[Rfam]
RNA sequence: CGGCUUCUACGAAUGGCACUGGAAGAAUUCACGGGAUGUUUGAAUCGAGCAACCAGAGCUUUUUGGUUGCUCUGCCUCGUGGUUCCUCAGUGCCAUGCGUAGCGGCCG
Numbered sequence: 001c002g003g004c005u006u007c008u009a010c011g012a013a014u015g016g017c018a019c020u021g022g023a024a025g026a027a028u029u030c031a032c033g034g035g036a037u038g039u040u041u042g043a044a045u046c047g048a049g050c051a052a053c054c055a056g057a058g059c060u061u062u063u064u065g066g067u068u069g070c071u072c073u074g075c076c077u078c079g080u081g082g083u084u085c086c087u088c089a090g091u092g093c094c095a096u097g098c099g100u101a102g103c104g105g106c107c108g
Base pairs, nucleotide, nucleotide: 003106004105005104007102008101009100010099013096014095015094016093017092018091020089021088022087025084026083029082030081031080032079033078034077